RNA: SAM riboswitch aptamer (S box leader)
Organism: bacterium HR29
RNA sequence: CCCUUAUCGAGAUUGGGUGGAGGGACCCGGCCCUGUGAAGCCCAGGCAACCUGCCCGAAGGGGCAAGGUGCCAAAUCCGGCCCCCGAGGCCUUCGGGGGGAGAUGAGAG
Numbered sequence: 001c002c003c004u005u006a007u008c009g010a011g012a013u014u015g016g017g018u019g020g021a022g023g024g025a026c027c028c029g030g031c032c033c034u035g036u037g038a039a040g041c042c043c044a045g046g047c048a049a050c051c052u053g054c055c056c057g058a059a060g061g062g063g064c065a066a067g068g069u070g071c072c073a074a075a076u077c078c079g080g081c082c083c084c085c086g087a088g089g090c091c092u093u094c095g096g097g098g099g100g101a102g103a104u105g106a107g108a109g
Base pairs, nucleotide, nucleotide: 001109003107004106005105006104007103008102013044015043016042017041018040022033023032024031027080028079029078030077045072046071047070048069050068051067054062055061076101081098082097083096085095086094087093